[Rfam]
RNA: MIR2118 microRNA precursor family
Organism: Triticum aestivum
RNA sequence: GAUAGGAUGAGGAAGGAAAGAGGGCCCCAAGAGCAGUGGGCAUGGGAACAUGAUGGAAGGCUAAAGCUCUCUUAGUUCCUCGUGCAACGCUGAAAGAGGCUAUGGUUGAGUUUUCGUGAUGCCUUCCAUGCCUAUUAUUCUUUGGAGCCCCUUGCUUGUCUUUUUGUGU
Numbered sequence: 001g002a003u004a005g006g007a008u009g010a011g012g013a014a015g016g017a018a019a020g021a022g023g024g025c026c027c028c029a030a031g032a033g034c035a036g037u038g039g040g041c042a043u044g045g046g047a048a049c050a051u052g053a054u055g056g057a058a059g060g061c062u063a064a065a066g067c068u069c070u071c072u073u074a075g076u077u078c079c080u081c082g083u084g085c086a087a088c089g090c091u092g093a094a095a096g097a098g099g100c101u102a103u104g105g106u107u108g109a110g111u112u113u114u115c116g117u118g119a120u121g122c123c124u125u126c127c128a129u130g131c132c133u134a135u136u137a138u139u140c141u142u143u144g145g146a147g148c149c150c151c152u153u154g155c156u157u158g159u160c161u162u163u164u165u166g167u168g169u
Base pairs, nucleotide, nucleotide: 009160010159012157013156016153017152022149023148026145027144029142030141031140032139033138035136037134038133039132040131041130042129043128044127045126046125047124049121050120051119053117056115057114058113059112060111061110